This 121-nucleotide sequence from Arthrobacter sp. ERGS1:01 belongs to the Rfam family "SAM (S-adenosyl methionine) riboswitch aptamer". About the family: SAM-IV is a mRNA element that regulates gene expression via direct sensing of S-adenosylmethionine (SAM or AdoMet). The match comes from Rfam's covariance-model search (80 bits). The organism belongs to Arthrobacter, within Bacteria. On this family, see Weinberg et al., RNA 2008: "The aptamer core of SAM-IV riboswitches mimics the ligand-binding site of SAM-I riboswitches". The family has 40 seed sequences and 2,360 matches in Rfam 15.1.

RNA sequence: AGUAACGAGUUCCAGCGCCAAGCCCUGACUUGCUGGACGGCAACCCUCUUUUCGGCGGGGUGCCUCAGGUGACUACUCGGCAAACCCGGCGACCAGCGGCCGCGGCUUGCAAGCGAGACAU
Numbered sequence: 001a002g003u004a005a006c007g008a009g010u011u012c013c014a015g016c017g018c019c020a021a022g023c024c025c026u027g028a029c030u031u032g033c034u035g036g037a038c039g040g041c042a043a044c045c046c047u048c049u050u051u052u053c054g055g056c057g058g059g060g061u062g063c064c065u066c067a068g069g070u071g072a073c074u075a076c077u078c079g080g081c082a083a084a085c086c087c088g089g090c091g092a093c094c095a096g097c098g099g100c101c102g103c104g105g106c107u108u109g110c111a112a113g114c115g116a117g118a119c120a121u
Stems, first nucleotide, its partner, number of pairs: 001077004009038001011037006021030002039064003044060003048055002080110004085105002